[Rfam]
RNA sequence: AUUGGCUGAGGGCAAUGUGGGCUGGGGUGGGAACUGGAGCCCGCCUGGCCUUGACAAGCAGCGGGAGGAGAGGCUGAGCCGGACCUGGAUCCCUGUGAUUGCCGCCUGCUCCUCCCACCUCUGGUCUCACGAGGGGUUUCCCGCCUCGCGCCCCCCCACCGCUGGACUUGCGCUUCUUUUCUCUCCGCGUGUGGAGGGAGUCAGUGCUUAGGCCGGAGCGAGCCUGGGGGCCGCCGGCCGUGAAGGCAUCGCGGGGACCGAUUCACCAUG
Numbered sequence: 001a002u003u004g005g006c007u008g009a010g011g012g013c014a015a016u017g018u019g020g021g022c023u024g025g026g027g028u029g030g031g032a033a034c035u036g037g038a039g040c041c042c043g044c045c046u047g048g049c050c051u052u053g054a055c056a057a058g059c060a061g062c063g064g065g066a067g068g069a070g071a072g073g074c075u076g077a078g079c080c081g082g083a084c085c086u087g088g089a090u091c092c093c094u095g096u097g098a099u100u101g102c103c104g105c106c107u108g109c110u111c112c113u114c115c116c117a118c119c120u121c122u123g124g125u126c127u128c129a130c131g132a133g134g135g136g137u138u139u140c141c142c143g144c145c146u147c148g149c150g151c152c153c154c155c156c157c158a159c160c161g162c163u164g165g166a167c168u169u170g171c172g173c174u175u176c177u178u179u180u181c182u183c184u185c186c187g188c189g190u191g192u193g194g195a196g197g198g199a200g201u202c203a204g205u206g207c208u209u210a211g212g213c214c215g216g217a218g219c220g221a222g223c224c225u226g227g228g229g230g231c232c233g234c235c236g237g238c239c240g241u242g243a244a245g246g247c248a249u250c251g252c253g254g255g256g257a258c259c260g261a262u263u264c265a266c267c268a269u270g
Stems, first nucleotide, its partner, number of pairs: 002012002021049003070139003074136001112135003116131001168204003173200004180195003214237001216235001218234003
HIF-1 alpha IRES: a 270-nucleotide RNA sequence from Spermophilus dauricus. This family represents the hypoxia-inducible factor 1-alpha internal ribosome entry site. The family's consensus secondary structure was predicted with RNAfold. The family's RNA type in Rfam is internal ribosome entry site.